[Rfam]
RNA sequence: CGUAACCACAGGGGGAGCGUUUAGCUGAGAGUGAACGUGAAGUUCUGACCCUUUGAACCUGUCCAGUUAAUGCUGACGUAGGGAUGUGGAAUGCUUUUCUC
Numbered sequence: 001c002g003u004a005a006c007c008a009c010a011g012g013g014g015g016a017g018c019g020u021u022u023a024g025c026u027g028a029g030a031g032u033g034a035a036c037g038u039g040a041a042g043u044u045c046u047g048a049c050c051c052u053u054u055g056a057a058c059c060u061g062u063c064c065a066g067u068u069a070a071u072g073c074u075g076a077c078g079u080a081g082g083g084a085u086g087u088g089g090a091a092u093g094c095u096u097u098u099c100u101c
Base pairs, nucleotide, nucleotide: 006089007088008087009086010085011052012051013050014049016046017025018024033045034044035043036042058082059081060080061079064075065074066073
Dot-bracket structure: .....(((((((((.(((.....)).......((((.....)))))..)))).....((((..(((......)))...))))..)))))............
Shown here is a 101-nucleotide RNA sequence from Weizmannia acidilactici, a member of the family "TPP riboswitch aptamer (THI element)". Lineage of the source: Bacteria > Bacillota > Bacilli > Bacillaceae > Heyndrickxia. The family's consensus secondary structure is taken from published work.